[Rfam]
RNA sequence: GCGUGACACCGGGCCCCUCUGGCGGUUAUUACCGCGAUGUCGGAGUCACAGU
Numbered sequence: 001g002c003g004u005g006a007c008a009c010c011g012g013g014c015c016c017c018u019c020u021g022g023c024g025g026u027u028a029u030u031a032c033c034g035c036g037a038u039g040u041c042g043g044a045g046u047c048a049c050a051g052u
Base pairs, nucleotide, nucleotide: 006046007045009043010042011041012040022035023034024033025032026031
terC RNA: a 52-nucleotide RNA sequence from Pseudomonas sp. HAR-UPW-AIA-41. Taxonomically the source falls in Pseudomonas (Bacteria, Pseudomonadota, Gammaproteobacteria, Pseudomonadales). The family has 129 seed sequences and 1,112 matches in Rfam 15.1. Rfam classes the family as a cis-regulatory element.